[Rfam]
RNA sequence: UUGAUUUAAAUCAUUGUAAAUCUACAUUUUGUAAAUUGAGUUCACACAAAGUGAUGGACAUACAUUGAUUUUAUGCAA
Numbered sequence: 001u002u003g004a005u006u007u008a009a010a011u012c013a014u015u016g017u018a019a020a021u022c023u024a025c026a027u028u029u030u031g032u033a034a035a036u037u038g039a040g041u042u043c044a045c046a047c048a049a050a051g052u053g054a055u056g057g058a059c060a061u062a063c064a065u066u067g068a069u070u071u072u073a074u075g076c077a078a
Base pairs, nucleotide, nucleotide: 001078002077003076006073008071009070010069011068012067013066015064016063017062018061022057023056024055025053026052027051028050029049030048031047

The family of this 78-nucleotide sequence from Medicago truncatula is "MIR5269 microRNA precursor family". Rfam 15.1 lists 389 matches to the family in 6 species. The family's consensus secondary structure was predicted with RNAalifold. The source organism's lineage runs through Eukaryota, Embryophyta, Pentapetalae, Papilionoideae and Medicago. Rfam links the family to the GO terms RISC complex and miRNA-mediated post-transcriptional gene silencing. A search with the family's covariance model found it, with a score of 63 bits.